[Rfam]
RNA sequence: UCAUAAAUAUGGCAAACUCUUUGAAAAAAGAAGUACGCAAAGCUAUAGGGCCUUCAUCAAUUAUGAUAUGGCAGCCAGUUGCAUUC
Numbered sequence: 001u002c003a004u005a006a007a008u009a010u011g012g013c014a015a016a017c018u019c020u021u022u023g024a025a026a027a028a029a030g031a032a033g034u035a036c037g038c039a040a041a042g043c044u045a046u047a048g049g050g051c052c053u054u055c056a057u058c059a060a061u062u063a064u065g066a067u068a069u070g071g072c073a074g075c076c077a078g079u080u081g082c083a084u085u086c
Base pairs, nucleotide, nucleotide: 012038013037017033018031019030020029021028022027041080042079043078044077048076049075050072051071052070057066058065059064
RNA: c-di-GMP-I riboswitch aptamer